[Rfam]
RNA sequence: GGUUGCAAGCUUGAGGCCAUAGCAGAAGUGUUCAUGGCACAGCCCUGUCAAGUUCCAACGUAUCUGUGAAUUCUGCU
Numbered sequence: 001g002g003u004u005g006c007a008a009g010c011u012u013g014a015g016g017c018c019a020u021a022g023c024a025g026a027a028g029u030g031u032u033c034a035u036g037g038c039a040c041a042g043c044c045c046u047g048u049c050a051a052g053u054u055c056c057a058a059c060g061u062a063u064c065u066g067u068g069a070a071u072u073c074u075g076c077u
Base pairs, nucleotide, nucleotide: 013045015044016043017042021077022076023075024074025073026072027071028040029039030038049066050065052063053062055060
The record is a 77-nucleotide RNA from Alligator mississippiensis, which matches "Mammalian CPEB3 ribozyme" in Rfam. The source organism's lineage runs through Eukaryota, Eumetazoa, Bilateria, Amniota and Alligator.